[Rfam]
RNA: Plastid-ccsA-ndhD-2 3UTR RNA
Nucleotides: 053
Stems, first nucleotide, its partner, number of pairs: 005050003009046006016039005022033001
Number, partner (000 for none) and nucleotide at each position: 001000u002000u003000u004000a005050u006049g007048a008000a009046a010045a011044c012043c013042a014041u015000u016039u017038g018037a019036a020035u021000c022033a023000a024000g025000u026000a027000g028000u029000g030000u031000a032000g033022u034000a035020a036019u037018u038017c039016a040000c041014a042013u043012g044011g045010u046009u047000c048007u049006c050005a051000c052000u053000g